Shown here is a 78-nucleotide RNA sequence from Schistosoma margrebowiei, a member of the family "mir-3492 microRNA precursor family".
[Rfam]
RNA sequence: AGGUUUUCGAAUCCGUGUUGAGAUUUCGUCCGACAGCAACCCAUUAAAGCUGAUCAGACUUCCAAGAUAAGUGAAGUU
Numbered sequence: 001a002g003g004u005u006u007u008c009g010a011a012u013c014c015g016u017g018u019u020g021a022g023a024u025u026u027c028g029u030c031c032g033a034c035a036g037c038a039a040c041c042c043a044u045u046a047a048a049g050c051u052g053a054u055c056a057g058a059c060u061u062c063c064a065a066g067a068u069a070a071g072u073g074a075a076g077u078u
Stems, first nucleotide, its partner, number of pairs: 002077001004075003008071001011068003016064002020061003024058003028054003

NCBI's taxonomy places the organism under Eukaryota, Rhabditophora, Strigeidida, Schistosomatoidea, Schistosoma. Its family is annotated with miRNA-mediated post-transcriptional gene silencing and RISC complex in the Gene Ontology.